RNA: Small nucleolar RNA SNORD67
Organism: Salvator merianae
RNA sequence: AGUGAGAAUGAUGAGGUGCACUUUUGGUGGUGCUGAGUGUCAGGUGACACAGGCACCACUCAGAGCCUUCCUGAUGACAAAUCCAGGUGCACAGGGGCCAUCUGACUCACU
Numbered sequence: 001a002g003u004g005a006g007a008a009u010g011a012u013g014a015g016g017u018g019c020a021c022u023u024u025u026g027g028u029g030g031u032g033c034u035g036a037g038u039g040u041c042a043g044g045u046g047a048c049a050c051a052g053g054c055a056c057c058a059c060u061c062a063g064a065g066c067c068u069u070c071c072u073g074a075u076g077a078c079a080a081a082u083c084c085a086g087g088u089g090c091a092c093a094g095g096g097g098c099c100a101u102c103u104g105a106c107u108c109a110c111u
Stems, first nucleotide, its partner, number of pairs: 004110001006108002023064004027059004032054003037050005